A member of the RNA family "Makes More Granules Regulator RNA (mmgR)" from Lichenibacterium minor, 80 nucleotides long.
NCBI's taxonomy places the organism under Bacteria, Pseudomonadati, Alphaproteobacteria, Lichenihabitantaceae, Lichenibacterium.

RNA sequence: GGCGCAUGCCCUUCGUGGGCGUUUCCUCCCUAGACUUGGGUCGCUCGCCGCGAGGUGUAGCGGCCUUCUUUCUGCGCUGG
Numbered sequence: 001g002g003c004g005c006a007u008g009c010c011c012u013u014c015g016u017g018g019g020c021g022u023u024u025c026c027u028c029c030c031u032a033g034a035c036u037u038g039g040g041u042c043g044c045u046c047g048c049c050g051c052g053a054g055g056u057g058u059a060g061c062g063g064c065c066u067u068c069u070u071u072c073u074g075c076g077c078u079g080g
Stems, first nucleotide, its partner, number of pairs: 008020004039065007
Dot-bracket structure: .......((((.....))))..................(((((((.............)))))))...............